[Rfam]
RNA sequence: GAGGCGGUAUCGUUUUGCGAACUGUACUCUUGAUCUGAUGAACUUAUAAUGGUUUUAUUAAUGGAAUCACCUUCAUAACUGCGUUAGACGGUUACGUUGGAUUCUGCUCUGAGCCGUAAGGACCGAGACAGAAGG
Numbered sequence: 001g002a003g004g005c006g007g008u009a010u011c012g013u014u015u016u017g018c019g020a021a022c023u024g025u026a027c028u029c030u031u032g033a034u035c036u037g038a039u040g041a042a043c044u045u046a047u048a049a050u051g052g053u054u055u056u057a058u059u060a061a062u063g064g065a066a067u068c069a070c071c072u073u074c075a076u077a078a079c080u081g082c083g084u085u086a087g088a089c090g091g092u093u094a095c096g097u098u099g100g101a102u103u104c105u106g107c108u109c110u111g112a113g114c115c116g117u118a119a120g121g122a123c124c125g126a127g128a129c130a131g132a133a134g135g
Stems, first nucleotide, its partner, number of pairs: 001029003004025005010020002104131003107127003111123001114121002
RNA: pan motif